RNA sequence: UGGCUGUGAUGACUAUUUCGUUUCUCGAAUCUGAUAUCGAUGUCAUUCGAGGACCGCCUUGAUGACUUCAUUUGUGCGUGUCUGAGCCAU
Numbered sequence: 001u002g003g004c005u006g007u008g009a010u011g012a013c014u015a016u017u018u019c020g021u022u023u024c025u026c027g028a029a030u031c032u033g034a035u036a037u038c039g040a041u042g043u044c045a046u047u048c049g050a051g052g053a054c055c056g057c058c059u060u061g062a063u064g065a066c067u068u069c070a071u072u073u074g075u076g077c078g079u080g081u082c083u084g085a086g087c088c089a090u
Stems, first nucleotide, its partner, number of pairs: 001089004
RNA: small nucleolar RNA snoR126
Organism: Musa acuminata